[Rfam]
RNA: MIR5291 microRNA precursor family
Organism: Lathyrus oleraceus
RNA sequence: GAUGGAUUUAAUCCAAUCCAUUAACUUAAUUUUUAUGUAAUGGAUGGAUUGGAUGGAUUUUUUG
Numbered sequence: 001g002a003u004g005g006a007u008u009u010a011a012u013c014c015a016a017u018c019c020a021u022u023a024a025c026u027u028a029a030u031u032u033u034u035a036u037g038u039a040a041u042g043g044a045u046g047g048a049u050u051g052g053a054u055g056g057a058u059u060u061u062u063u064g
Base pairs, nucleotide, nucleotide: 004060005059006058007057008056011054012053013052014051015050016049017048018047019046020045021044022043027037028036